[Rfam]
RNA sequence: UGGAAAUGAUGAAACAGAGAUAACAGGGUGCAUUUGAAUGGUGUGUGAUUGGAGCAUUUUAAAAUUUAAAUUAAGUAAAUAUUAAAAUGGGGGGGGGUGUAUGUGUGUGUGCGUGGGUUUAAGUAUAAAGGCUAAGGAAAGGGAGCCCUGACAGAUAAUGCAGAUAUCGGAGUGCAUCUGAGGCGGUUGUAAAAAUACAAGAGUGUUUAUUACAACUUUGCCAGUGAUUACAAUUUGGAAACGGCUCACCUACCUGCCUGACACCCUAUAAUCUCUAACAGGUUCAUAAAUGUGGACCUGUAAUCUGAUCCAU
Numbered sequence: 001u002g003g004a005a006a007u008g009a010u011g012a013a014a015c016a017g018a019g020a021u022a023a024c025a026g027g028g029u030g031c032a033u034u035u036g037a038a039u040g041g042u043g044u045g046u047g048a049u050u051g052g053a054g055c056a057u058u059u060u061a062a063a064a065u066u067u068a069a070a071u072u073a074a075g076u077a078a079a080u081a082u083u084a085a086a087a088u089g090g091g092g093g094g095g096g097g098u099g100u101a102u103g104u105g106u107g108u109g110u111g112c113g114u115g116g117g118u119u120u121a122a123g124u125a126u127a128a129a130g131g132c133u134a135a136g137g138a139a140a141g142g143g144a145g146c147c148c149u150g151a152c153a154g155a156u157a158a159u160g161c162a163g164a165u166a167u168c169g170g171a172g173u174g175c176a177u178c179u180g181a182g183g184c185g186g187u188u189g190u191a192a193a194a195a196u197a198c199a200a201g202a203g204u205g206u207u208u209a210u211u212a213c214a215a216c217u218u219u220g221c222c223a224g225u226g227a228u229u230a231c232a233a234u235u236u237g238g239a240a241a242c243g244g245c246u247c248a249c250c251u252a253c254c255u256g257c258c259u260g261a262c263a264c265c266c267u268a269u270a271a272u273c274u275c276u277a278a279c280a281g282g283u284u285c286a287u288a289a290a291u292g293u294g295g296a297c298c299u300g301u302a303a304u305c306u307g308a309u310c311c312a313u
Base pairs, nucleotide, nucleotide: 001312002311003310004309185217186216187215188214189213190212191211192210194207195206196205197204198203
RNA: Small Cajal body-specific RNA 7